Shown here is a 180-nucleotide RNA from Saimiri boliviensis, a member of the family "Small nucleolar RNA SNORA81". Pairs were carried over by alignment from the consensus structure, which was predicted with WAR. For this family Rfam cites "A novel experimental approach for systematic identification of box H/ACA snoRNAs from eukaryotes" (Gu et al., Nucleic Acids Res, 2005). The family has 28 seed sequences and 1,161 matches in Rfam 15.1.
[Rfam]
RNA sequence: ACCUUCUUGUUUAAGCUCUGUUCUAAAAUUGCGAAACUAGUAUCAUUUCUUAGCAUUUGUAAUAAAGCUAUAAGAGAAAACACAAGAAGAAAGAACAACUAAACAACUGUCCCAGAUAGAAGAAAAACUGAGUUGAACCUCUUUUUUAUUUGUUUUUGUUUUUGUUUUGAGAUGGAGUCU
Numbered sequence: 001a002c003c004u005u006c007u008u009g010u011u012u013a014a015g016c017u018c019u020g021u022u023c024u025a026a027a028a029u030u031g032c033g034a035a036a037c038u039a040g041u042a043u044c045a046u047u048u049c050u051u052a053g054c055a056u057u058u059g060u061a062a063u064a065a066a067g068c069u070a071u072a073a074g075a076g077a078a079a080a081c082a083c084a085a086g087a088a089g090a091a092a093g094a095a096c097a098a099c100u101a102a103a104c105a106a107c108u109g110u111c112c113c114a115g116a117u118a119g120a121a122g123a124a125a126a127a128c129u130g131a132g133u134u135g136a137a138c139c140u141c142u143u144u145u146u147u148a149u150u151u152g153u154u155u156u157u158g159u160u161u162u163u164g165u166u167u168u169g170a171g172a173u174g175g176a177g178u179c180u
Base pairs, nucleotide, nucleotide: 018076019075021073022072024070025069029065030064031063033057034056037053038052039051040050042048108174109173110172111171113169114168115167116166130156132154134152135151136150137149